[Rfam]
RNA sequence: UCCGACAAAGGCAAACCCUGAGCAAUCAGGGGACGCAAAGGAAAGGGUCUUGUGGUAGAGACGUAUGACCAUACAUCUCUACAGAUGAAAAAAAGAUAGCCUUACUGCCGAAG
Dot-bracket structure: (.((......((...((((((....))))))..[))..((.(.((((((((.........................................))))).])))).))..))..)
Numbered sequence: 001u002c003c004g005a006c007a008a009a010g011g012c013a014a015a016c017c018c019u020g021a022g023c024a025a026u027c028a029g030g031g032g033a034c035g036c037a038a039a040g041g042a043a044a045g046g047g048u049c050u051u052g053u054g055g056u057a058g059a060g061a062c063g064u065a066u067g068a069c070c071a072u073a074c075a076u077c078u079c080u081a082c083a084g085a086u087g088a089a090a091a092a093a094a095g096a097u098a099g100c101c102u103u104a105c106u107g108c109c110g111a112a113g
Stems, first nucleotide, its partner, number of pairs: 001113001003110002011036002016031006034099001039106002042103001044102003047097005
About this RNA:
A member of the RNA family "c-di-GMP-I-GGC riboswitch aptamer" from Candidatus Brocadia sapporoensis, 113 nucleotides long. A reference for the family is Weinberg et al. (2017), "Bioinformatic analysis of riboswitch structures uncovers variant classes with altered ligand specificity", Proc Natl Acad Sci U S A. Rfam 15.1 lists 1,298 matches to the family in 717 species. Taxonomically the source falls in Candidatus Brocadia (Bacteria, Planctomycetota, Candidatus Brocadiia, Candidatus Brocadiales).